[Rfam]
RNA sequence: AACGCCUGUCGCUAGAUCUCUCCCUUCCCCUGGAGCAGAUCUGACCGGAACGGGGGUCCCUCCCCAGGCCUUCGUUCCCCGGCCCCGCUGACCCCCCCCUGGUCGGCGGGGCUUUUUG
Dot-bracket structure: ...(.(....).)((((((((((........)))).))))))....((((((((((((........))))))))))))..((((((((.((((.......)))).)))))))).....
A member of the RNA family "Xanthomonadaceae sRNA sX13" from Pseudoxanthomonas taiwanensis, 118 nucleotides long. The literature on the family includes a 2011 paper in Nucleic Acids Res by Schmidtke et al., "Genome-wide transcriptome analysis of the plant pathogen Xanthomonas identifies sRNAs with putative virulence functions". The family's RNA type in Rfam is small RNA. The family's consensus secondary structure was predicted with CMfinder.